[Rfam]
Nucleotides: 133
Stems, first nucleotide, its partner, number of pairs: 008083004012025005026054002029051001031049002036044002055078001057076005101131004106127005112122004
Number, partner (000 for none) and nucleotide at each position: 001000a002000a003000a004000a005000a006000a007000g008083g009082c010081u011080c012025u013024g014023u015022c016021a017000u018000g019000a020000g021016u022015g023014g024013c025012a026054c027053c028000c029051g030000c031049a032048g033000a034000g035000g036044g037043a038000c039000u040000u041000g042000g043037u044036c045000g046000a047000g048032c049031u050000a051029c052000a053027g054026g055078c056000a057076g058075a059074a060073u061072c062000g063000a064000c065000a066000u067000c068000a069000a070000g071000a072061g073060a074059u075058u076057u077000g078055g079000g080011g081010a082009g083008c084000a085000u086000a087000c088000u089000u090000u091000u092000u093000u094000g095000g096000u097000a098000c099000c100000u101131g102130g103129g104128u105000g106127g107126c108125u109124a110123g111000u112122g113121a114120u115119c116000g117000u118000u119115g120114g121113u122112c123110c124109u125108g126107g127106c128104a129103c130102c131101u132000g133000c